[Rfam]
RNA sequence: GAGCGAUGAUAAAAAAAUGUAUUAUUACUGACCUUUAUAACUGUUAAGUUUUCUACACUUGAUCUGAGCUCA
Numbered sequence: 001g002a003g004c005g006a007u008g009a010u011a012a013a014a015a016a017a018u019g020u021a022u023u024a025u026u027a028c029u030g031a032c033c034u035u036u037a038u039a040a041c042u043g044u045u046a047a048g049u050u051u052u053c054u055a056c057a058c059u060u061g062a063u064c065u066g067a068g069c070u071c072a
Stems, first nucleotide, its partner, number of pairs: 001071004015036003019032002

A member of the RNA family "Small nucleolar RNA U2-30" from Moschus moschiferus, 72 nucleotides long. NCBI's taxonomy places the organism under Eukaryota, Eumetazoa, Theria, Ruminantia, Moschus. Gene Ontology terms of the family: nucleolus and RNA processing. Rfam 15.1 lists 664 matches to the family in 136 species. The family's consensus secondary structure is taken from published work.